[Rfam]
RNA sequence: CCGCCGGGGAUGCGAUCUCCCCUUCAGGCUACCCGGCCCAAGCAUCGCGUCCAUUGCCAUUUCAAGGACGCCGCAUG
Numbered sequence: 001c002c003g004c005c006g007g008g009g010a011u012g013c014g015a016u017c018u019c020c021c022c023u024u025c026a027g028g029c030u031a032c033c034c035g036g037c038c039c040a041a042g043c044a045u046c047g048c049g050u051c052c053a054u055u056g057c058c059a060u061u062u063c064a065a066g067g068a069c070g071c072c073g074c075a076u077g
Stems, first nucleotide, its partner, number of pairs: 006022005047071006

A member of the RNA family "chrB-a RNA" from Novosphingobium flavum, 77 nucleotides long. Lineage of the source: Bacteria > Alphaproteobacteria > Sphingomonadales > Sphingomonadaceae > Novosphingobium.